RNA: Bacterial large subunit ribosomal RNA, nucleotides 9 to 499
RNA sequence: GCCUUAAGAGCAUUCGGUGGAUGCCUUGGCGUCGAGAGGCGAUGAAGGACGUGGUACGCUGCGAUAAGCCGUGGGGAGCUGCGAACAAGCUUUGAUCCGCGGAUUUCCGAAUGGGGAAACCCGGCCCGCAAGGGUCAUCCCGCAAGGGAAGCGAACCCGGGGAAGUGAAACAUCUCAGUACCCGGAGGAAAGGACAUCAACAGAGACUCCGCUAGUAGUGGCGAGCGAACGCGGACCAGGCCAGUGGCCUGAAUUGACGAACCGGAAUCCUCUGGAAAGGGGAGCGACAUGGGUGACAGCCCCGUACGGGUAGUGUCGGUUCAGGUCCUUGAGUAAGGCGGGACACGUGAAAUCCUGUCUGAACGUGGGGGGACCACCCUCCAAGCCUAAGUACUCCUCGACGACCGAUAGUGAACCAGUACCGUGAGGGAAAGGUGAAAAGCACCCCGACGAGGGGAGUGAAAUAGCACCUGAAACCGGAUGCUUACAAA
Number, nucleotide and partner (000 for none) at each position: 001g000002c000003c000004u000005u000006a000007a000008g486009a485010g484011c483012a482013u481014u480015c479016g478017g477018u000019g000020g000021a000022u000023g471024c435025c434026u000027u000028g406029g405030c403031g402032u401033c400034g399035a398036g397037a395038g394039g152040c151041g000042a000043u000044g000045a000046a000047g108048g107049a106050c063051g062052u061053g000054g000055u000056a000057c000058g000059c000060u000061g052062c051063g050064a000065u000066a000067a000068g000069c102070c101071g100072u099073g098074g097075g096076g000077a000078g090079c089080u088081g000082c000083g000084a000085a000086c000087a000088a080089g079090c078091u000092u000093u000094g000095a000096u075097c074098c073099g072100c071101g070102g069103a000104u000105u000106u049107c048108c047109g000110a000111a000112u000113g122114g121115g120116g000117a000118a000119a000120c115121c114122c113123g136124g135125c134126c133127c132128g000129c000130a000131a000132g127133g126134g125135u124136c123137a000138u149139c148140c147141c146142g000143c000144a000145a000146g141147g140148g139149a138150a000151g040152c039153g000154a000155a000156c187157c185158c184159g183160g182161g181162g000163a000164a000165g000166u000167g174168a173169a000170a000171c000172a000173u168174c167175u000176c000177a000178g000179u000180a000181c161182c160183c159184g158185g157186a000187g156188g000189a000190a000191a000192g000193g000194a000195c000196a000197u204198c203199a000200a000201c000202a000203g198204a197205g000206a000207c391208u235209c234210c233211g232212c231213u000214a000215g000216u000217a000218g226219u225220g000221g000222c000223g000224a000225g219226c218227g000228a000229a000230c000231g212232c211233g210234g209235a208236c000237c000238a388239g387240g386241c385242c000243a000244g000245u000246g000247g000248c325249c324250u323251g322252a321253a320254u319255u318256g317257a316258c315259g314260a000261a000262c309263c308264g307265g000266a000267a000268u283269c282270c281271u280272c279273u000274g000275g000276a000277a000278a000279g272280g271281g270282g269283a268284g000285c000286g000287a000288c000289a000290u000291g303292g302293g301294u000295g000296a000297c000298a000299g000300c000301c293302c292303c291304g000305u000306a000307c264308g263309g262310g000311u000312a000313g000314u259315g258316u257317c256318g255319g254320u253321u252322c251323a250324g249325g248326u000327c000328c000329u000330u000331g000332a000333g000334u000335a000336a360337g359338g358339c357340g356341g355342g354343a353344c000345a000346c000347g000348u000349g000350a000351a000352a000353u343354c342355c341356u340357g339358u338359c337360u336361g000362a000363a000364c000365g000366u000367g382368g381369g380370g379371g378372g000373a000374c000375c000376a000377c000378c371379c370380u369381c368382c367383a000384a000385g241386c240387c239388u238389a000390a000391g207392u000393a000394c038395u037396c000397c036398u035399c034400g033401a032402c031403g030404a000405c029406c028407g000408a000409u000410a000411g000412u000413g000414a000415a000416c000417c000418a000419g000420u000421a000422c429423c428424g000425u000426g000427a000428g423429g422430g000431a000432a000433a000434g025435g024436u000437g000438a000439a000440a000441a000442g000443c000444a000445c457446c456447c455448c454449g000450a000451c000452g000453a000454g448455g447456g446457g445458a000459g000460u000461g000462a000463a000464a000465u000466a000467g000468c000469a000470c000471c023472u000473g000474a000475a000476a000477c017478c016479g015480g014481a013482u012483g011484c010485u009486u008487a000488c000489a000490a000491a000